[Rfam]
RNA sequence: CAAAAAACCAGCGUCGCGAAGGCGCUGGCUAGGACGACUACAACCGUCGAGUGCCGUGCAGGUCGCGGCGGACGGCGACGCGGAGCGUCUGAGGAACCGGAGCGGACUGGCUGGCUGCCAGGGCCCGGCGAUCAAUGUGAGCGGAUUCUAGGGACGGUUUUAUAGAUCGUCAACACUAUAAAGUCCCGAAAUCAUAACAAAAAGUAA
Numbered sequence: 001c002a003a004a005a006a007a008c009c010a011g012c013g014u015c016g017c018g019a020a021g022g023c024g025c026u027g028g029c030u031a032g033g034a035c036g037a038c039u040a041c042a043a044c045c046g047u048c049g050a051g052u053g054c055c056g057u058g059c060a061g062g063u064c065g066c067g068g069c070g071g072a073c074g075g076c077g078a079c080g081c082g083g084a085g086c087g088u089c090u091g092a093g094g095a096a097c098c099g100g101a102g103c104g105g106a107c108u109g110g111c112u113g114g115c116u117g118c119c120a121g122g123g124c125c126c127g128g129c130g131a132u133c134a135a136u137g138u139g140a141g142c143g144g145a146u147u148c149u150a151g152g153g154a155c156g157g158u159u160u161u162a163u164a165g166a167u168c169g170u171c172a173a174c175a176c177u178a179u180a181a182a183g184u185c186c187c188g189a190a191a192u193c194a195u196a197a198c199a200a201a202a203a204g205u206a207a
Stems, first nucleotide, its partner, number of pairs: 008028007044110003052070005077089005136175003141170004147166004
Burkholderia sRNA Bp1_Cand738_SIPHT: a 207-nucleotide sequence from Burkholderia gladioli. The source organism's lineage runs through Bacteria, Pseudomonadati, Pseudomonadota, Burkholderiaceae and Burkholderia gladioli. It is annotated as a small RNA.